This 70-nucleotide sequence from Camelus dromedarius belongs to the Rfam family "Small nucleolar RNA SNORD2". Rfam classes the family as a C/D-box small nucleolar RNA. A reference for the family is Zhou et al. (2004), "Identification of a novel box C/D snoRNA from mouse nucleolar cDNA library", Gene.

[Rfam]
RNA sequence: GAAUGAAUUAAUGGCGAUGAUUUUCUGGGACUGAAGUAAAAAGAAGAUGUAUAUAUAGUACUUAUCAGUC
Numbered sequence: 001g002a003a004u005g006a007a008u009u010a011a012u013g014g015c016g017a018u019g020a021u022u023u024u025c026u027g028g029g030a031c032u033g034a035a036g037u038a039a040a041a042a043g044a045a046g047a048u049g050u051a052u053a054u055a056u057a058g059u060a061c062u063u064a065u066c067a068g069u070c
Base pairs, nucleotide, nucleotide: 001070002069004067005066006065